The family of this 93-nucleotide RNA sequence from Streptococcus peroris is "Cia-dependent small RNA csRNA1".
RNA sequence: AUUAAAUAAAGACCUCCUAACUUUAUUUAAUAGAAUCCUAAACUUUUUUCAUAAUAAUCUCCGACAAAAGCCAUUCUUAUGAGUGGCUUUUGU
Number, nucleotide and partner (000 for none) at each position: 001a031002u030003u029004a028005a027006a026007u025008a024009a023010a022011g021012a000013c000014c000015u000016c000017c000018u000019a000020a000021c011022u010023u009024u008025a007026u006027u005028u004029a003030a002031u001032a000033g000034a000035a000036u000037c000038c000039u000040a000041a000042a000043c000044u000045u000046u000047u000048u000049u000050c000051a000052u000053a000054a000055u000056a000057a000058u000059c000060u000061c000062c000063g000064a000065c000066a000067a090068a089069a088070g087071c086072c085073a084074u083075u082076c000077u000078u000079a000080u000081g000082a075083g074084u073085g072086g071087c070088u069089u068090u067091u000092g000093u000

Overview
Pairs were carried over by alignment from the consensus structure. Taxonomically the source falls in Streptococcus peroris (Bacteria, Bacillati, Bacilli, Streptococcus).